[Rfam]
RNA sequence: ACCACUAAGCCAUCUCUCCAGCCCUAAAAUCUUUUUUUUUAAAGACAUAAAAAGGGCUGGAGAGAUGGCUUAGCUGU
Numbered sequence: 001a002c003c004a005c006u007a008a009g010c011c012a013u014c015u016c017u018c019c020a021g022c023c024c025u026a027a028a029a030u031c032u033u034u035u036u037u038u039u040u041a042a043a044g045a046c047a048u049a050a051a052a053a054g055g056g057c058u059g060g061a062g063a064g065a066u067g068g069c070u071u072a073g074c075u076g077u
Base pairs, nucleotide, nucleotide: 002076005073006072007071008070009069010068011067012066013065014064015063016062017061018060019059020058021057022056023055024054